Shown here is a 68-nucleotide RNA sequence from Ciceribacter lividus, a member of the family "S-element". The family's RNA type in Rfam is cis-regulatory element. The match comes from Rfam's covariance-model search (72 bits). Lineage of the source: Bacteria > Pseudomonadati > Hyphomicrobiales > Rhizobiaceae > Ciceribacter. The family has 29 seed sequences and 231 matches in Rfam 15.1. The family's consensus secondary structure is taken from published work. The literature on the family includes a 2004 paper in Mol Microbiol by Venkova-Canova et al., "Two discrete elements are required for the replication of a repABC plasmid: an antisense RNA and a stem-loop structure". This family represents a group of S-elements from p42d and related plasmids. The S-element has multiple functions and is believed to act as a negative regulator of repC transcription, be required for efficient replication and act as a translational enhancer of repC.
RNA sequence: AGUCAAGAGUCUUUGGCACCGAUUUUGGUGAGCGGACGUCUUUUGCCUGAUCAAAGGUGAAAGAAGUG
Dot-bracket structure: .........(((((..((((..(((.(..(.(((((.....))))).)..).))))))))))))....